[Rfam]
RNA sequence: GGCCUCCCUCUGCGGGGCAAUUGAUCACGGAGCACCGCAAUUAAUAGCCCCACAGAGGGAGGCC
Numbered sequence: 001g002g003c004c005u006c007c008c009u010c011u012g013c014g015g016g017g018c019a020a021u022u023g024a025u026c027a028c029g030g031a032g033c034a035c036c037g038c039a040a041u042u043a044a045u046a047g048c049c050c051c052a053c054a055g056a057g058g059g060a061g062g063c064c
Stems, first nucleotide, its partner, number of pairs: 001064012014051005020045006028037003